[Rfam]
RNA sequence: GGCGCGGAAUCCGAAAAGCGAAAAGAGUAGGAA
Numbered sequence: 001g002g003c004g005c006g007g008a009a010u011c012c013g014a015a016a017a018g019c020g021a022a023a024a025g026a027g028u029a030g031g032a033a
Stems, first nucleotide, its partner, number of pairs: 003020003010032003
Rfam assigns this 33-nucleotide RNA to the family "DUF805b RNA". Pairs were carried over by alignment from the consensus structure, which is taken from published work. The family's RNA type in Rfam is cis-regulatory element.